Shown here is a 79-nucleotide RNA from Myripristis murdjan, a member of the family "Small nucleolar RNA SNORD66".
A search with the family's covariance model found it, with a score of 80 bits.
Gene Ontology terms of the family: RNA processing and nucleolus.
NCBI's taxonomy places the organism under Eukaryota, Eumetazoa, Deuterostomia, Gnathostomata, Myripristis.
The family's RNA type in Rfam is C/D-box small nucleolar RNA.
snoRNA HBII-142 is part of the C/D family of snoRNAs. It is the human orthologue of the mouse MBII-142 snoRNA and is predicted to guide 2'O-ribose methylation of small 18S rRNA at residue C1272.
The base pairs follow the family's consensus structure, which was predicted with RNAalifold.

RNA sequence: CUCCAGUGAUGACCUUUUAAUUUGUGCCACGUGUCUGGGCCACUGAUGUACUAAGUGAUGGGAUUGAGGAACUGAGGAG
Numbered sequence: 001c002u003c004c005a006g007u008g009a010u011g012a013c014c015u016u017u018u019a020a021u022u023u024g025u026g027c028c029a030c031g032u033g034u035c036u037g038g039g040c041c042a043c044u045g046a047u048g049u050a051c052u053a054a055g056u057g058a059u060g061g062g063a064u065u066g067a068g069g070a071a072c073u074g075a076g077g078a079g
Base pairs, nucleotide, nucleotide: 001079002078003077004076